This 101-nucleotide sequence from Paenibacillus popilliae belongs to the Rfam family "Purine riboswitch aptamer".
Riboswitches are metabolite binding domains within certain messenger RNAs that serve as precision sensors for their corresponding targets.
NCBI's taxonomy places the organism under Bacteria, Bacillati, Bacilli, Caryophanales, Paenibacillus popilliae.
[Rfam]
RNA sequence: AACCUCAUACGUACACUUUUUCGUAUAAUCCCGGGAAUUGGCCUGGGAGUUUCUACGAGAUCACCGUAAAUGAUCUGGCUACGAAGGAUGUUGGCACCCGG
Numbered sequence: 001a002a003c004c005u006c007a008u009a010c011g012u013a014c015a016c017u018u019u020u021u022c023g024u025a026u027a028a029u030c031c032c033g034g035g036a037a038u039u040g041g042c043c044u045g046g047g048a049g050u051u052u053c054u055a056c057g058a059g060a061u062c063a064c065c066g067u068a069a070a071u072g073a074u075c076u077g078g079c080u081a082c083g084a085a086g087g088a089u090g091u092u093g094g095c096a097c098c099c100g101g
Base pairs, nucleotide, nucleotide: 018087019086020085021084022083023082024081025080029048030047031046032045033044034043035042058076059075060074061073062072063071